[Rfam]
RNA sequence: AGGGGGAGGCCGACUCCUGGCCUGUGUCCUGGCGCCCUGUGCUUCCAGCCUGUGCAGGUGGAUUUGCGCUCCCAUCCGUGCAGCUCCUC
Numbered sequence: 001a002g003g004g005g006g007a008g009g010c011c012g013a014c015u016c017c018u019g020g021c022c023u024g025u026g027u028c029c030u031g032g033c034g035c036c037c038u039g040u041g042c043u044u045c046c047a048g049c050c051u052g053u054g055c056a057g058g059u060g061g062a063u064u065u066g067c068g069c070u071c072c073c074a075u076c077c078g079u080g081c082a083g084c085u086c087c088u089c
Base pairs, nucleotide, nucleotide: 002088003087004086005085006084009081010080011078012077019072020071023068024067025066026065027062028061029060030057032055033054034053035052039050041049042048043047